[Rfam]
RNA sequence: GCAACUUGCAGUUGUUUAAUAAAAAUUGGUUCCUUAGGUUAUUCGCCACCUUUCGAGGUGGCAUUUUUUUAUUUAAAUUU
Numbered sequence: 001g002c003a004a005c006u007u008g009c010a011g012u013u014g015u016u017u018a019a020u021a022a023a024a025a026u027u028g029g030u031u032c033c034u035u036a037g038g039u040u041a042u043u044c045g046c047c048a049c050c051u052u053u054c055g056a057g058g059u060g061g062c063a064u065u066u067u068u069u070u071a072u073u074u075a076a077a078u079u080u
Stems, first nucleotide, its partner, number of pairs: 001015006045062007